Small nucleolar RNA SNORA31: a 129-nucleotide sequence from Prolemur simus.

[Rfam]
RNA sequence: AUGCAUCACUGACAGACCUGGAGCAGUACUGUCUGCUGCUAAGGUUUCCACUAAAGAUGCAAGAAAAAUUUCCUCACUCUUUCUGUAUGCCUGAUCAUGGCAGCCAAGAUUGAAUUGAGGAAUACAGGG
Dot-bracket structure: .((((((..((..(((((...(((((......))))).....))))).)).....)))))).........((((((..(..(((...((((.......))))....)))..)...))))))........

A search with the family's covariance model found it, with a score of 59 bits. Rfam describes the family as follows. ACA31 (SNORA31) belongs to the H/ACA class of snoRNAs which are thought to guide the sites of modification of uridines to pseudouridines. ACA31 is predicted to guide the pseudouridylation of U3713 in 28S rRNA and U218 in 18S rRNA. This family includes the mouse homologue snoMBI-161. The family's RNA type in Rfam is H/ACA-box small nucleolar RNA. The source organism's lineage runs through Eukaryota, Euteleostomi, Eutheria, Lemuriformes and Prolemur.